[Rfam]
RNA: Bacillaceae-1 RNA
RNA sequence: UGAAAAGGACUCGGCUAAGGGCUUUCACAUCCUGUGAAAAAAGCCGAGUACCUUCGUCCUGGUGU
Numbered sequence: 001u002g003a004a005a006a007g008g009a010c011u012c013g014g015c016u017a018a019g020g021g022c023u024u025u026c027a028c029a030u031c032c033u034g035u036g037a038a039a040a041a042a043g044c045c046g047a048g049u050a051c052c053u054u055c056g057u058c059c060u061g062g063u064g065u
Stems, first nucleotide, its partner, number of pairs: 009049007024038005052064001054062002